Rfam assigns this 62-nucleotide sequence from Porphyra umbilicalis to the family "Plastid-psbN 5UTR RNA".
Rfam's curators write: Plastid psbN is a non-coding RNA (ncRNA) recognised in plastids.
The family's consensus secondary structure was predicted with LocARNA.
Taxonomically the source falls in Porphyra (Eukaryota, Rhodophyta, Bangiophyceae, Bangiales).

[Rfam]
RNA sequence: UGAAAAUUCCCAUAAUGGGAGUUGUACCCCAACCUGGUGCAACUUUUCCAUAUUCUGAAUUU
Numbered sequence: 001u002g003a004a005a006a007u008u009c010c011c012a013u014a015a016u017g018g019g020a021g022u023u024g025u026a027c028c029c030c031a032a033c034c035u036g037g038u039g040c041a042a043c044u045u046u047u048c049c050a051u052a053u054u055c056u057g058a059a060u061u062u
Base pairs, nucleotide, nucleotide: 018046019045020044021043022042023041024040025039026038027037028036